[Rfam]
The record is an 85-nucleotide sequence from Bacillus sp. V59.32b, which matches "c-di-GMP-I riboswitch aptamer" in Rfam.
Lineage of the source: Bacteria > Bacillota > Bacilli > Bacillaceae > Bacillus.
From the family's description: GEMM was predicted in a large-scale screen for bacterial structured RNA regulatory elements.
The base pairs follow the family's consensus structure, which is taken from published work.
A search with the family's covariance model found it, with a score of 75 bits.

RNA sequence: CGUACGAAAUGGCAAAGUUAUCGAAAGAUAAUGACGCAAAGCUAAAGGGGCUAAAGUAAUCUUGCGAAGCCAGCCAGCUGCCGAA
Numbered sequence: 001c002g003u004a005c006g007a008a009a010u011g012g013c014a015a016a017g018u019u020a021u022c023g024a025a026a027g028a029u030a031a032u033g034a035c036g037c038a039a040a041g042c043u044a045a046a047g048g049g050g051c052u053a054a055a056g057u058a059a060u061c062u063u064g065c066g067a068a069g070c071c072a073g074c075c076a077g078c079u080g081c082c083g084a085a
Base pairs, nucleotide, nucleotide: 012037013036017032018031019030020029021028022027040079041078042077043076047075048074049071050070051069056065057064058063